mir-137 microRNA precursor family: a 71-nucleotide RNA from Petromyzon marinus.
Rfam links the family to the GO terms miRNA-mediated post-transcriptional gene silencing and RISC complex.
NCBI's taxonomy places the organism under Eukaryota, Opisthokonta, Chordata, Craniata, Petromyzon.
Clan: mir-137 clan.
A reference for the family is Chen et al. (2005), "The developmental miRNA profiles of zebrafish as determined by small RNA cloning", Genes Dev.
[Rfam]
RNA sequence: CGCGGCCACGGGUAUUCUUGGGUAUAUAAUACAGAUUGCGUUGUUAUUGCUUAAGAAUACACGUAGCCGCG
Number, nucleotide and partner (000 for none) at each position: 001c071002g070003c069004g068005g067006c000007c000008a064009c063010g062011g000012g060013u059014a058015u057016u056017c055018u054019u053020g052021g051022g050023u049024a000025u000026a047027u046028a045029a044030u043031a042032c040033a000034g000035a000036u000037u000038g000039c000040g032041u000042u031043g030044u029045u028046a027047u026048u000049g023050c022051u021052u020053a019054a018055g017056a016057a015058u014059a013060c012061a000062c010063g009064u008065a000066g000067c005068c004069g003070c002071g001